The record is an 87-nucleotide RNA sequence from Zingiber officinale, which matches "Small nucleolar RNA U61" in Rfam.
The family has 8 seed sequences and 401 matches in Rfam 15.1.
By type it is a C/D-box small nucleolar RNA.
The family's consensus secondary structure was predicted with WAR.
The source organism's lineage runs through Eukaryota, Viridiplantae, Euphyllophyta, Zingiberaceae and Zingiber.
[Rfam]
RNA sequence: UGGCCAUGAUGAAAUCAAAUGCUUGUGCCGGAGACGGAUUCGUCUAUCGCUGACGGUAACACAAUCCCUCUAAGAAGUUCUGAGUCA
Number, nucleotide and partner (000 for none) at each position: 001u087002g086003g085004c084005c000006a000007u000008g000009a000010u000011g000012a000013a000014a000015u000016c000017a000018a000019a000020u000021g000022c000023u000024u000025g000026u000027g000028c000029c000030g000031g000032a000033g000034a000035c000036g000037g000038a000039u000040u000041c000042g000043u000044c000045u000046a000047u000048c000049g000050c000051u000052g000053a000054c000055g000056g000057u000058a000059a000060c000061a000062c000063a000064a000065u000066c000067c000068c000069u000070c000071u000072a000073a000074g000075a000076a000077g000078u000079u000080c000081u000082g000083a000084g004085u003086c002087a001